The family of this 69-nucleotide RNA sequence from Echinops telfairi is "XIST 3' intron conserved motif". On this family, see Parker et al., Genome Res 2011: "New families of human regulatory RNA structures identified by comparative analysis of vertebrate genomes".

[Rfam]
RNA sequence: UUGACCUUUUCUAUCUUUAAAUCACUCUGAAGAGGGUGGGCUAGGAGGAAGAGUGAAAGGAAAGGUCAA
Numbered sequence: 001u002u003g004a005c006c007u008u009u010u011c012u013a014u015c016u017u018u019a020a021a022u023c024a025c026u027c028u029g030a031a032g033a034g035g036g037u038g039g040g041c042u043a044g045g046a047g048g049a050a051g052a053g054u055g056a057a058a059g060g061a062a063a064g065g066u067c068a069a
Stems, first nucleotide, its partner, number of pairs: 001069012022056006

Annotation: The family's consensus secondary structure is taken from published work. NCBI's taxonomy places the organism under Eukaryota, Dipnotetrapodomorpha, Tetrapoda, Mammalia, Echinops.